[Rfam]
RNA: RNase MRP
Organism: Fusarium venenatum
RNA sequence: CCCUCGCUCAAUAGAUCGCUAUUCGAAGCUCACAAACAGAGACACUGCGAUUUAUCGCAGCGUCUCGAUCACUCUAUGGCUUUGGGAGAAAGUCCCCGGACGUCUUGGUUUCGACCAAGUUUGCGGAAACGCGCCGCCAUAGAAGCACUGCGGCUUACCUCUGCGCCCAGGCCCUCGCCCUGCGCUGGCCCUGUCCUCCGCUACAUUUACUUUUCAACAGCCUUUGUCUCACGGUCUUCGCCGCCCUCGGUCCUCUUGGAUGAAGAUAUGAGUCCGCUGUCGAGGUGUUGGUGAGUUCUGGACAGACUUGGUUGUCUGGCAGGUGGAUGGUGGGCAGACGCUCAGUGCUCGUGUGUGUGGCAUCGGGUCGCUUUGGAUUUGUUGUCGAGAUUGACAGGUAUGCGAUUGCCCGGCGAAAGCUGGGUUACUCAAUGGGGCUCAUUCUUGAUGCGAGG
Numbered sequence: 001c002c003c004u005c006g007c008u009c010a011a012u013a014g015a016u017c018g019c020u021a022u023u024c025g026a027a028g029c030u031c032a033c034a035a036a037c038a039g040a041g042a043c044a045c046u047g048c049g050a051u052u053u054a055u056c057g058c059a060g061c062g063u064c065u066c067g068a069u070c071a072c073u074c075u076a077u078g079g080c081u082u083u084g085g086g087a088g089a090a091a092g093u094c095c096c097c098g099g100a101c102g103u104c105u106u107g108g109u110u111u112c113g114a115c116c117a118a119g120u121u122u123g124c125g126g127a128a129a130c131g132c133g134c135c136g137c138c139a140u141a142g143a144a145g146c147a148c149u150g151c152g153g154c155u156u157a158c159c160u161c162u163g164c165g166c167c168c169a170g171g172c173c174c175u176c177g178c179c180c181u182g183c184g185c186u187g188g189c190c191c192u193g194u195c196c197u198c199c200g201c202u203a204c205a206u207u208u209a210c211u212u213u214u215c216a217a218c219a220g221c222c223u224u225u226g227u228c229u230c231a232c233g234g235u236c237u238u239c240g241c242c243g244c245c246c247u248c249g250g251u252c253c254u255c256u257u258g259g260a261u262g263a264a265g266a267u268a269u270g271a272g273u274c275c276g277c278u279g280u281c282g283a284g285g286u287g288u289u290g291g292u293g294a295g296u297u298c299u300g301g302a303c304a305g306a307c308u309u310g311g312u313u314g315u316c317u318g319g320c321a322g323g324u325g326g327a328u329g330g331u332g333g334g335c336a337g338a339c340g341c342u343c344a345g346u347g348c349u350c351g352u353g354u355g356u357g358u359g360g361c362a363u364c365g366g367g368u369c370g371c372u373u374u375g376g377a378u379u380u381g382u383u384g385u386c387g388a389g390a391u392u393g394a395c396a397g398g399u400a401u402g403c404g405a406u407u408g409c410c411c412g413g414c415g416a417a418a419g420c421u422g423g424g425u426u427a428c429u430c431a432a433u434g435g436g437g438c439u440c441a442u443u444c445u446u447g448a449u450g451c452g453a454g455g
Stems, first nucleotide, its partner, number of pairs: 002455006008448004014407006023086001024084006039066005045060006091439002094437004122133004337379002343375003347371002350367001352365001353363004409424006